[Rfam]
RNA sequence: UCCACCGCGAGGUGGAAUCCAAAGGAAGCUGGAGGCAAAAGCACGAGCCAAGGUACACGAACUGGAUUUGAGGCAGGAGCAGUCGGAUGAGUUGCCCAUACACAACGAAAUCCAAAGCCGCCAAGGGCUAAUCCUGUAGACUCCAGUGGUUGCGGGCGGAAAGAUGACGUU
Numbered sequence: 001u002c003c004a005c006c007g008c009g010a011g012g013u014g015g016a017a018u019c020c021a022a023a024g025g026a027a028g029c030u031g032g033a034g035g036c037a038a039a040a041g042c043a044c045g046a047g048c049c050a051a052g053g054u055a056c057a058c059g060a061a062c063u064g065g066a067u068u069u070g071a072g073g074c075a076g077g078a079g080c081a082g083u084c085g086g087a088u089g090a091g092u093u094g095c096c097c098a099u100a101c102a103c104a105a106c107g108a109a110a111u112c113c114a115a116a117g118c119c120g121c122c123a124a125g126g127g128c129u130a131a132u133c134c135u136g137u138a139g140a141c142u143c144c145a146g147u148g149g150u151u152g153c154g155g156g157c158g159g160a161a162a163g164a165u166g167a168c169g170u171u
Stems, first nucleotide, its partner, number of pairs: 001016006028171001030169002036163001041157002044154002046151005062146005067140001073137003077133002081129003085113004091106004
RNA: Group II catalytic intron D1-D4-3
Organism: Paenibacillus yonginensis